[Rfam]
RNA sequence: AAUACCCGGCGGGCGGUUCCUCCUCCCUCUGCCCUCCGGGCUAAAAGGCCAGCACCUCCUCCCGCUGGCCAGACACAAGGAAAAGACCGGCACCUCCUCCCGCCGGUCUUUUUCU
Numbered sequence: 001a002a003u004a005c006c007c008g009g010c011g012g013g014c015g016g017u018u019c020c021u022c023c024u025c026c027c028u029c030u031g032c033c034c035u036c037c038g039g040g041c042u043a044a045a046a047g048g049c050c051a052g053c054a055c056c057u058c059c060u061c062c063c064g065c066u067g068g069c070c071a072g073a074c075a076c077a078a079g080g081a082a083a084a085g086a087c088c089g090g091c092a093c094c095u096c097c098u099c100c101c102g103c104c105g106g107u108c109u110u111u112u113u114c115u
Base pairs, nucleotide, nucleotide: 007038008037009036011034012033013032014031015030016029047070048069049068050067051066052065081112082111083110084109085108086107087106088105089104090103091102
RNA: Alphaproteobacterial ar14